[Rfam]
RNA sequence: GCGAUGAGCUAAUUUGUGUAAGCCGAGAGAUAUGCUUAAUUGCUAAACGCAUGAAUGUGGUCGUGCGGUUUCUCGCCACAAACGCAUCAAAGACACCUAUGUAUAUAGGUGUC
Numbered sequence: 001g002c003g004a005u006g007a008g009c010u011a012a013u014u015u016g017u018g019u020a021a022g023c024c025g026a027g028a029g030a031u032a033u034g035c036u037u038a039a040u041u042g043c044u045a046a047a048c049g050c051a052u053g054a055a056u057g058u059g060g061u062c063g064u065g066c067g068g069u070u071u072c073u074c075g076c077c078a079c080a081a082a083c084g085c086a087u088c089a090a091a092g093a094c095a096c097c098u099a100u101g102u103a104u105a106u107a108g109g110u111g112u113c
Stems, first nucleotide, its partner, number of pairs: 014081005024075008034043002048067002051064003092113009

This 113-nucleotide RNA from Bacillus sp. 165 belongs to the Rfam family "BsrF". The source organism's lineage runs through Bacteria, Bacillati, Bacillota, Bacilli and Bacillus. Pairs were carried over by alignment from the consensus structure, which was predicted with WAR.